[Rfam]
t44 RNA: a 108-nucleotide RNA sequence from Erwinia billingiae.
RNA sequence: CUCAUUAUGUGUAAAUAACACACAUGUAUCGACACAUACUCCGGGGUGCCUGAACGCCUGCGUAAGCAGUCUGCCGGGUCGGUUGUAUGGGAUACAUGGAGGCUUAAC
Numbered sequence: 001c002u003c004a005u006u007a008u009g010u011g012u013a014a015a016u017a018a019c020a021c022a023c024a025u026g027u028a029u030c031g032a033c034a035c036a037u038a039c040u041c042c043g044g045g046g047u048g049c050c051u052g053a054a055c056g057c058c059u060g061c062g063u064a065a066g067c068a069g070u071c072u073g074c075c076g077g078g079u080c081g082g083u084u085g086u087a088u089g090g091g092a093u094a095c096a097u098g099g100a101g102g103c104u105u106a107a108c
Stems, first nucleotide, its partner, number of pairs: 023098008035089005041082003048079005
The family's RNA type in Rfam is small RNA. Pairs were carried over by alignment from the consensus structure, which was predicted with LocARNA. Rfam describes the family as follows. This family consists of a number of bacterial RNA genes of between 135 and 170 bases in length.